[Rfam]
RNA sequence: CUGCAAUGUAGCAUGCCCGUUUGGUGCUUAACUCUGAUGAAUAAGUGUUAUUUAAUUACAUUUGGGUAACGGGGUGUUACACA
Numbered sequence: 001c002u003g004c005a006a007u008g009u010a011g012c013a014u015g016c017c018c019g020u021u022u023g024g025u026g027c028u029u030a031a032c033u034c035u036g037a038u039g040a041a042u043a044a045g046u047g048u049u050a051u052u053u054a055a056u057u058a059c060a061u062u063u064g065g066g067u068a069a070c071g072g073g074g075u076g077u078u079a080c081a082c083a
Stems, first nucleotide, its partner, number of pairs: 007081008016073006